[Rfam]
RNA sequence: AGGUUCCUAUUGUUUGGAAGACUAGUGAUUUUGUUGUUAAAUGCUUAGAGAAAACAAUAAGUCUCUAGUCUCCUGACGAAGGAUGCCU
Numbered sequence: 001a002g003g004u005u006c007c008u009a010u011u012g013u014u015u016g017g018a019a020g021a022c023u024a025g026u027g028a029u030u031u032u033g034u035u036g037u038u039a040a041a042u043g044c045u046u047a048g049a050g051a052a053a054a055c056a057a058u059a060a061g062u063c064u065c066u067a068g069u070c071u072c073c074u075g076a077c078g079a080a081g082g083a084u085g086c087c088u
Stems, first nucleotide, its partner, number of pairs: 002086001005083001007082002010079005016073002019071004025065001027063005033058006